RNA sequence: AUCUGUUAAAGGUAAACCCGGGCGAAAGACGGGCACGCAAAGUUACGGGUCUAAAGAGCGGAAACUCUAAGGCUGCGGGUCUACCAUA
Numbered sequence: 001a002u003c004u005g006u007u008a009a010a011g012g013u014a015a016a017c018c019c020g021g022g023c024g025a026a027a028g029a030c031g032g033g034c035a036c037g038c039a040a041a042g043u044u045a046c047g048g049g050u051c052u053a054a055a056g057a058g059c060g061g062a063a064a065c066u067c068u069a070a071g072g073c074u075g076c077g078g079g080u081c082u083a084c085c086a087u088a
Stems, first nucleotide, its partner, number of pairs: 012038002017033004023028001041082002044079001046078001048076001049073003056067003